The family of this 119-nucleotide sequence from Novosphingobium piscinae is "Glycine riboswitch aptamer". The match comes from Rfam's covariance-model search (55 bits). Rfam links the family to the GO term glycine biosynthetic process. This family represents the bacterial glycine riboswitch. Lineage of the source: Bacteria > Pseudomonadati > Alphaproteobacteria > Sphingomonadaceae > Novosphingobium. The pairing is the family consensus, mapped onto this sequence.
[Rfam]
RNA sequence: UAGCGUCGCUCUGGAAAGUGCAGCACCUUCGGGGGCUGCCGCCGAAGGGGUAACCCGGUUCCGCCAGUCAUGGCCGGAACAGGGGAAAGCUCUCAGGCUUCCGUGACAGAGGGGGCACG
Numbered sequence: 001u002a003g004c005g006u007c008g009c010u011c012u013g014g015a016a017a018g019u020g021c022a023g024c025a026c027c028u029u030c031g032g033g034g035g036c037u038g039c040c041g042c043c044g045a046a047g048g049g050g051u052a053a054c055c056c057g058g059u060u061c062c063g064c065c066a067g068u069c070a071u072g073g074c075c076g077g078a079a080c081a082g083g084g085g086a087a088a089g090c091u092c093u094c095a096g097g098c099u100u101c102c103g104u105g106a107c108a109g110a111g112g113g114g115g116c117a118c119g
Stems, first nucleotide, its partner, number of pairs: 006114002009111005020039004041098003044094002048092003054085002